Source information
This 100-nucleotide RNA sequence belongs to the Rfam family "Small nucleolar RNA SNORD16". Gene Ontology terms of the family: RNA processing and nucleolus. Rfam 15.1 lists 1,321 matches to the family in 655 species.

RNA sequence: UCUAAUGAUGGUGUAAUUUGCGUUCGACCGACACCUCACGCGACACAUGCCUAGUGUCAUUACGCGGUGGUGUCAGGAUGUGACAAGACUUUGCUGAAGA
Numbered sequence: 001u002c003u004a005a006u007g008a009u010g011g012u013g014u015a016a017u018u019u020g021c022g023u024u025c026g027a028c029c030g031a032c033a034c035c036u037c038a039c040g041c042g043a044c045a046c047a048u049g050c051c052u053a054g055u056g057u058c059a060u061u062a063c064g065c066g067g068u069g070g071u072g073u074c075a076g077g078a079u080g081u082g083a084c085a086a087g088a089c090u091u092u093g094c095u096g097a098a099g100a
Stems, first nucleotide, its partner, number of pairs: 001100003021082002025080001031073005040065002042058005